[Rfam]
Nucleotides: 359
Stems, first nucleotide, its partner, number of pairs: 001355010011344001012324007020042009047342003051339005056228004063260004068224005073087005088102001089100004103219002108217002110213003126160002129155001133151007168186006188208001189206007232280004242271006251265005289306007
Number, partner (000 for none) and nucleotide at each position: 001355a002354a003353a004352g005351c006350g007349g008348g009347c010346c011344a012324g013323g014322c015321g016320a017319u018318c019000g020042c021041g022040c023039g024038u025037g026036c027035g028034g029000c030000a031000u032000g033000u034028u035027c036026g037025c038024a039023u040022g041021u042020g043000a044000g045000g046000a047342a048341a049340g050000u051339c052338c053337g054336g055335g056228c057227u058226c059225c060000a061000c062000a063260g064259g065258g066257c067000a068224g069223g070222a071221u072220g073087c074086u075085g076084g077083c078000u079000a080000a081000c082000g083077g084076c085075c086074a087073g088102g089100c090099g091098g092097g093000g094000c095000g096000a097092c098091c099090c100089g101000a102088c103219g104218g105000a106000a107000a108217g109216u110213g111212c112211c113000g114000c115000a116000g117000a118000a119000a120000a121000g122000a123000a124000g125000a126160c127159u128000c129155c130000c131000g132000c133151u134150g135149c136148c137147c138146g139145c140000u141000a142000u143000a144000u145139g146138c147137g148136g149135g150134u151133g152000a153000g154000a155129g156000a157000a158000a159127a160126g161000c162000u163000g164000a165000a166000a167000c168186g169185g170184u171183g172182g173181u174000g175000u176000a177000a178000g179000a180000g181173a182172c183171c184170a185169c186168c187000a188208g189206c190205g191204u192203c193202g194201u195200g196000g197000c198000a199000a200195c201194a202193u203192g204191g205190c206189g207000g208188c209000u210000u211112g212111g213110u214000a215000a216109a217108c218104c219103c220072c221071a222070u223069c224068c225059g226058g227057a228056g229000c230000a231000a232280g233279c234278g235277c236000a237000a238000a239000u240000a241000g242271g243270a244269g245268c246267g247266c248000c249000a250000u251265g252264g253263a254262c255261c256000g257066g258065c259064c260063c261255g262254g263253u264252c265251c266247g267246c268245g269244u270243u271242c272000g273000g274000g275000u276000a277235g278234c279233g280232u281000g282000c283000g284000u285000g286000g287000a288000a289306c290305u291304g292303c293302a294301c295300g296000g297000u298000g299000a300295c301294g302293u303292g304291c305290a306289g307000a308000c309000a310000a311000g312000a313000u314000a315000a316000a317000u318018g319017a320016u321015c322014g323013c324012c325000c326000a327000c328000g329000a330000c331000a332000g333000a334000a335055c336054c337053c338052g339051g340049c341048u342047u343000a344011u345000c346010g347009g348008c349007c350006c351005g352004c353003u354002u355001u356000g357000c358000c359000u